Record summary
The family of this 82-nucleotide RNA sequence from Rhodanobacter thiooxydans is "Fluoride riboswitch aptamer (crcB RNA motif)". Lineage of the source: Bacteria > Pseudomonadota > Gammaproteobacteria > Lysobacterales > Rhodanobacter.
[Rfam]
RNA sequence: CAAUCCCACGGAGAUGGCAUUCCUCCGGCCCCGAGUUGACUGGGGUGAACCGCCGCCCACGGCUGAUGAUGCCUGCCCACCC
Numbered sequence: 001c002a003a004u005c006c007c008a009c010g011g012a013g014a015u016g017g018c019a020u021u022c023c024u025c026c027g028g029c030c031c032c033g034a035g036u037u038g039a040c041u042g043g044g045g046u047g048a049a050c051c052g053c054c055g056c057c058c059a060c061g062g063c064u065g066a067u068g069a070u071g072c073c074u075g076c077c078c079a080c081c082c
Base pairs, nucleotide, nucleotide: 010026011025012024013023016073017072018071019070020069021068052063053062054061055060

It scores 48 bits against the family's covariance model.